[Rfam]
About this RNA: Shown here is a 221-nucleotide RNA sequence from Paraburkholderia lacunae, a member of the family "Manganese Mn2+ riboswitch aptamer (yybP-ykoY)". NCBI's taxonomy places the organism under Bacteria, Pseudomonadati, Pseudomonadota, Burkholderiales, Paraburkholderia. The match comes from Rfam's covariance-model search (60 bits).

RNA sequence: CCGUCCCUCAUUGGGGAGUAGCCGCCCCGCGACACGUCCGCGCCGCUGUGAUCUGGGUGCGUCGAGCGUGUGAUUCGCGGGGGCGCCUGUCAACAGACUUGGCCUGCAAGGCCAUGGCAGACGCAGCCUCUGGCCUGGCGAGACCGAUGAUCCACACGCGCUGCAAGAGGGCCCGGCGCGUCGUGGGUCGUCGCUCGUUCAUAUCUCGGCCCGGGGAAAAU
Numbered sequence: 001c002c003g004u005c006c007c008u009c010a011u012u013g014g015g016g017a018g019u020a021g022c023c024g025c026c027c028c029g030c031g032a033c034a035c036g037u038c039c040g041c042g043c044c045g046c047u048g049u050g051a052u053c054u055g056g057g058u059g060c061g062u063c064g065a066g067c068g069u070g071u072g073a074u075u076c077g078c079g080g081g082g083g084c085g086c087c088u089g090u091c092a093a094c095a096g097a098c099u100u101g102g103c104c105u106g107c108a109a110g111g112c113c114a115u116g117g118c119a120g121a122c123g124c125a126g127c128c129u130c131u132g133g134c135c136u137g138g139c140g141a142g143a144c145c146g147a148u149g150a151u152c153c154a155c156a157c158g159c160g161c162u163g164c165a166a167g168a169g170g171g172c173c174c175g176g177c178g179c180g181u182c183g184u185g186g187g188u189c190g191u192c193g194c195u196c197g198u199u200c201a202u203a204u205c206u207c208g209g210c211c212c213g214g215g216g217a218a219a220a221u
Base pairs, nucleotide, nucleotide: 026081027080028079029078030077031076032075083124084123085122087120088119089118090117091116092115100114101113102112103111104110131220